[Rfam]
RNA: Antizyme RNA frameshifting stimulation element
Organism: Salmo salar
RNA sequence: UGACGCCCCUCACCCACCGCUGAAGAUCCCAGGUGGGCGAGGGACUGGCAUGGAUC
Numbered sequence: 001u002g003a004c005g006c007c008c009c010u011c012a013c014c015c016a017c018c019g020c021u022g023a024a025g026a027u028c029c030c031a032g033g034u035g036g037g038c039g040a041g042g043g044a045c046u047g048g049c050a051u052g053g054a055u056c
Stems, first nucleotide, its partner, number of pairs: 007043005013037006025056005